This 84-nucleotide sequence from Dendrosporobacter quercicolus belongs to the Rfam family "c-di-GMP-I riboswitch aptamer".
It scores 75 bits against the family's covariance model.
Lineage of the source: Bacteria > Bacillota > Negativicutes > Sporomusaceae > Dendrosporobacter.
RNA sequence: UAAAUAUUUAGGCAAACUUGCUGAAAGGCAAGGACGCAAAGCUAUGGGUCUAAGGACGUUGUCUAUGACCGCCAAGCCGCCAUU
Numbered sequence: 001u002a003a004a005u006a007u008u009u010a011g012g013c014a015a016a017c018u019u020g021c022u023g024a025a026a027g028g029c030a031a032g033g034a035c036g037c038a039a040a041g042c043u044a045u046g047g048g049u050c051u052a053a054g055g056a057c058g059u060u061g062u063c064u065a066u067g068a069c070c071g072c073c074a075a076g077c078c079g080c081c082a083u084u
Stems, first nucleotide, its partner, number of pairs: 012037002017032006041077003045074003048069003055063003